Notes
This 80-nucleotide RNA sequence from Cnephaeus nilssonii belongs to the Rfam family "mir-9261 microRNA precursor family". Gene Ontology terms of the family: RISC complex and miRNA-mediated post-transcriptional gene silencing. Pairs were carried over by alignment from the consensus structure, which was predicted with RNAalifold.
Nucleotides: 080
Stems, first nucleotide, its partner, number of pairs: 001078035
Number, partner (000 for none) and nucleotide at each position: 001078a002077a003076c004075a005074g006073u007072u008071u009070g010069u011068c012067c013066c014065g015064c016063g017062u018061c019060c020059c021058a022057c023056g024055g025054c026053g027052u028051u029050u030049u031048a032047a033046a034045a035044a036000u037000a038000g039000g040000a041000a042000c043000u044035u045034u046033u047032u048031u049030a050029a051028a052027a053026c054025g055024c056023c057022g058021u059020g060019g061018g062017a063016c064015g065014c066013g067012g068011g069010a070009c071008a072007a073006a074005u075004u076003g077002u078001u079000a080000a